[Rfam]
RNA: Drosophila small cajal body-specific RNA PsiU6-40
Nucleotides: 152
Base pairs, nucleotide, nucleotide: 004078005077006076007075008074009073011071012070013069014068020064021063027062028061030060031059032058033057034056040054041053043052045050085151086150088148091143092142093141094140095139096138099134101132102131103130104129105128106127107126108125110123111122
Number, partner (000 for none) and nucleotide at each position: 001000u002000u003000c004078g005077g006076a007075u008074g009073u010000a011071c012070u013069u014068u015000c016000c017000a018000a019000c020064a021063a022000a023000u024000u025000a026000a027062a028061c029000g030060g031059u032058u033057u034056a035000a036000c037000g038000g039000c040054u041053g042000a043052g044000a045050g046000c047000a048000a049000u050045u051000c052043c053041c054040g055000u056034u057033g058032a059031a060030c061028g062027u063021u064020u065000u066000c067000c068014a069013a070012a071011g072000c073009g074008c075007a076006u077005c078004c079000c080000a081000g082000a083000u084000u085151a086150a087000a088148u089000g090000a091143c092142u093141g094140g095139a096138a097000c098000u099134c100000u101132g102131u103130g104129c105128g106127u107126g108125c109000g110123c111122a112000u113000g114000g115000a116000a117000g118000u119000c120000u121000c122111u123110g124000a125108g126107c127106a128105c129104g130103c131102a132101u133000c134099g135000u136000u137000c138096u139095u140094c141093c142092a143091g144000u145000c146000a147000c148088a149000a150086u151085u152000c